[Rfam]
RNA sequence: GUGCAAAAUACAAUGGUGAUGUCUUUUCCAAGCACACAUCUGAUUGUUCUCUGUGGAAAAACCACUGUUGCUGAGUGAUUUUUGAAA
Numbered sequence: 001g002u003g004c005a006a007a008a009u010a011c012a013a014u015g016g017u018g019a020u021g022u023c024u025u026u027u028c029c030a031a032g033c034a035c036a037c038a039u040c041u042g043a044u045u046g047u048u049c050u051c052u053g054u055g056g057a058a059a060a061a062c063c064a065c066u067g068u069u070g071c072u073g074a075g076u077g078a079u080u081u082u083u084g085a086a087a
Base pairs, nucleotide, nucleotide: 002086004084005083006082008080009077010076011075
A member of the RNA family "Small nucleolar RNA SNORD121A" from Sclerurus mexicanus, 87 nucleotides long. NCBI's taxonomy places the organism under Eukaryota, Metazoa, Gnathostomata, Euteleostomi, Sclerurus. It is annotated as a C/D-box small nucleolar RNA. Gene Ontology terms of the family: RNA processing and nucleolus. It scores 52 bits against the family's covariance model. On this family, see Yang et al., Nucleic Acids Res 2006: "snoSeeker: an advanced computational package for screening of guide and orphan snoRNA genes in the human genome".